Shown here is a 97-nucleotide RNA sequence from Pseudorhodoferax sp. Leaf274, a member of the family "Burkholderia RNA 7 (anti-hemB)".
Taxonomically the source falls in Pseudorhodoferax (Bacteria, Betaproteobacteria, Burkholderiales, Comamonadaceae).
RNA sequence: UGCCCGCUUCACCUCCCUGAGCGGGGGCCUCGACGUGUAACAACCAACAGGCUUGCCACCCCGGCCCGCUGCGCUUGCACCGGCCGGGGUAUUUUUU
Numbered sequence: 001u002g003c004c005c006g007c008u009u010c011a012c013c014u015c016c017c018u019g020a021g022c023g024g025g026g027g028c029c030u031c032g033a034c035g036u037g038u039a040a041c042a043a044c045c046a047a048c049a050g051g052c053u054u055g056c057c058a059c060c061c062c063g064g065c066c067c068g069c070u071g072c073g074c075u076u077g078c079a080c081c082g083g084c085c086g087g088g089g090u091a092u093u094u095u096u097u
Stems, first nucleotide, its partner, number of pairs: 003025006027052004059089008

Source information: The family's RNA type in Rfam is small RNA. The literature on the family includes a 2007 paper in Nucleic Acids Res by Weinberg et al., "Identification of 22 candidate structured RNAs in bacteria using the CMfinder comparative genomics pipeline". This RNA motif was identified by computational search in b-proteobacteria Burkholderia. Co-purified with Hfq, expression confirmed by Northern blot.